[Rfam]
RNA sequence: GGCUGCCUGGCUGUAGCAGCACGUAAAUAUUGGAGUCAAAGCACUUGCGAAUCCUCCAGUAUUGACCGUGCUGCUGGAGUUAGGCGGGC
Numbered sequence: 001g002g003c004u005g006c007c008u009g010g011c012u013g014u015a016g017c018a019g020c021a022c023g024u025a026a027a028u029a030u031u032g033g034a035g036u037c038a039a040a041g042c043a044c045u046u047g048c049g050a051a052u053c054c055u056c057c058a059g060u061a062u063u064g065a066c067c068g069u070g071c072u073g074c075u076g077g078a079g080u081u082a083g084g085c086g087g088g089c
Stems, first nucleotide, its partner, number of pairs: 001089001003087004014076010024065001026063010
Dot-bracket structure: (.((((.......(((((((((((.((((((((((..................)))))))))).).)))))))))).......)))).)
mir-15 microRNA precursor family: an 89-nucleotide RNA sequence from Danio rerio. The family's consensus secondary structure was predicted with RNAalifold. The source organism's lineage runs through Eukaryota, Opisthokonta, Cypriniphysae, Danioninae and Danio. The sequence is in the family's curated seed alignment. This family represents the related mir-15a and mir-15b sequences. In humans miR-15a and miR-16 are clustered within 0.5 kb at 13q14. This region has been shown to be deleted in more than half of B cell chronic lymphocytic leukaemias (CLL). Gene Ontology terms of the family: miRNA-mediated post-transcriptional gene silencing and RISC complex.